A member of the RNA family "chrB-a RNA", 80 nucleotides long. Rfam 15.1 lists 347 matches to the family in 339 species. The sequence is in the family's curated seed alignment. Rfam classes the family as a cis-regulatory element. The family's consensus secondary structure is taken from published work.
RNA sequence: CCGCAGGGGAAAGCGAUCUCCCCUCAAGGCGACAUGCCCAAGAAUCGCGUCCCAUUAACAUUUUAGAGGGCGCAAUCAUG
Numbered sequence: 001c002c003g004c005a006g007g008g009g010a011a012a013g014c015g016a017u018c019u020c021c022c023c024u025c026a027a028g029g030c031g032a033c034a035u036g037c038c039c040a041a042g043a044a045u046c047g048c049g050u051c052c053c054a055u056u057a058a059c060a061u062u063u064u065a066g067a068g069g070g071c072g073c074a075a076u077c078a079u080g
Stems, first nucleotide, its partner, number of pairs: 005024006047073006